RNA sequence: AUGAUGAUACUUCCGCCGAAGGGCGGCUCGGCGAGAACCGCGGAGGGGUAACGGCCCAUGG
Numbered sequence: 001a002u003g004a005u006g007a008u009a010c011u012u013c014c015g016c017c018g019a020a021g022g023g024c025g026g027c028u029c030g031g032c033g034a035g036a037a038c039c040g041c042g043g044a045g046g047g048g049u050a051a052c053g054g055c056c057c058a059u060g061g
Stems, first nucleotide, its partner, number of pairs: 012058001013026004027045003031041003046057003

This 61-nucleotide sequence belongs to the Rfam family "pemK RNA". It is annotated as a cis-regulatory element.